A member of the RNA family "Ribosomal protein L10 leader" from Bacillus taeanensis, 169 nucleotides long. Its family is annotated with regulation of gene expression in the Gene Ontology. A reference for the family is Zengel and Lindahl (1994), "Diverse mechanisms for regulating ribosomal protein synthesis in Escherichia coli", Prog Nucleic Acid Res Mol Biol. By type it is a cis-regulatory leader.

[Rfam]
RNA sequence: UAACAAAAACAGUUCAUACCGUAGACAGUAGGGGCAGAAAUGCUUAAUUUCCUACCGAGGUAGUGUAAAUAACCCGAGCGUUCUAGAUUGAAUUCUAGAAAUGAUCUAUCGUGGAUUUUACCGCCUUUAUGUCUGCGGAAGCAGGCAUAAAGGCUUUUAAUUUGUUUUA
Numbered sequence: 001u002a003a004c005a006a007a008a009a010c011a012g013u014u015c016a017u018a019c020c021g022u023a024g025a026c027a028g029u030a031g032g033g034g035c036a037g038a039a040a041u042g043c044u045u046a047a048u049u050u051c052c053u054a055c056c057g058a059g060g061u062a063g064u065g066u067a068a069a070u071a072a073c074c075c076g077a078g079c080g081u082u083c084u085a086g087a088u089u090g091a092a093u094u095c096u097a098g099a100a101a102u103g104a105u106c107u108a109u110c111g112u113g114g115a116u117u118u119u120a121c122c123g124c125c126u127u128u129a130u131g132u133c134u135g136c137g138g139a140a141g142c143a144g145g146c147a148u149a150a151a152g153g154c155u156u157u158u159a160a161u162u163u164g165u166u167u168u169a
Stems, first nucleotide, its partner, number of pairs: 028055006034043003123154014